[Rfam]
RNA sequence: CACUCAUCGAGACCGGCGGAGGGACAGGCCCUUGGAUGCCGGGGCAACCUGCGAGGAUGUAUUUCGCGACGGUGCCAACUCCUGCGGAGGUGCCGGAUCGGCAUCAACCGGUAGAUGGGCG
Numbered sequence: 001c002a003c004u005c006a007u008c009g010a011g012a013c014c015g016g017c018g019g020a021g022g023g024a025c026a027g028g029c030c031c032u033u034g035g036a037u038g039c040c041g042g043g044g045c046a047a048c049c050u051g052c053g054a055g056g057a058u059g060u061a062u063u064u065c066g067c068g069a070c071g072g073u074g075c076c077a078a079c080u081c082c083u084g085c086g087g088a089g090g091u092g093c094c095g096g097a098u099c100g101g102c103a104u105c106a107a108c109c110g111g112u113a114g115a116u117g118g119g120c121g
Base pairs, nucleotide, nucleotide: 001121003119004118005117006116007115008114013042014041015040016039017038021031022030023029025084026083027082028081043076044075045074046073048072049071050068051067052066053065054064055063080113085110086109087108